[Rfam]
RNA sequence: AAACCUAGGCCUAGGCCUAGGCCUAGGCCUGAGCCUAGGCCUAGGCCUAGGCCUAGAGCCUAGGCCUAGAGCCCUAGGCCUAGAGCCUAGAGCCUAGGCCCUAGGCCUAAACCU
Dot-bracket structure: ....((((((.((((....(((..........)))....)))).)))))).............(((((....(((((...(((...)))....)))))...)))))........

The record is a 114-nucleotide sequence from Anisodus acutangulus, which matches "Small nucleolar RNA ACA64" in Rfam. On this family, see Schattner et al., RNA 2006: "A computational screen for mammalian pseudouridylation guide H/ACA RNAs". By type it is an H/ACA-box small nucleolar RNA. The match comes from Rfam's covariance-model search (38 bits). Gene Ontology terms of the family: RNA processing and nucleolus.